[Rfam]
RNA: mir-1290 microRNA precursor family
RNA sequence: GAGCACCAUGUCAGCACUCAAAAAGUUUUGGAUUUUGGAACAUUUCAGAUUUCAGAUCUUUGGAUUAGGGGUGCUC
Numbered sequence: 001g002a003g004c005a006c007c008a009u010g011u012c013a014g015c016a017c018u019c020a021a022a023a024a025g026u027u028u029u030g031g032a033u034u035u036u037g038g039a040a041c042a043u044u045u046c047a048g049a050u051u052u053c054a055g056a057u058c059u060u061u062g063g064a065u066u067a068g069g070g071g072u073g074c075u076c
Stems, first nucleotide, its partner, number of pairs: 001076007011068001013066002018063005024057001027056006034049006